[Rfam]
RNA sequence: AACAAUCUGUCCCGCGUCCCACGGCCUUUUAAAGAAGUCCCAAUUUGGGGACUUUUUUAAAAGGCCGUGGGACGCGGGACAGAUUGUUAA
Numbered sequence: 001a002a003c004a005a006u007c008u009g010u011c012c013c014g015c016g017u018c019c020c021a022c023g024g025c026c027u028u029u030u031a032a033a034g035a036a037g038u039c040c041c042a043a044u045u046u047g048g049g050g051a052c053u054u055u056u057u058u059a060a061a062a063g064g065c066c067g068u069g070g071g072a073c074g075c076g077g078g079a080c081a082g083a084u085u086g087u088u089a090a
Stems, first nucleotide, its partner, number of pairs: 001088035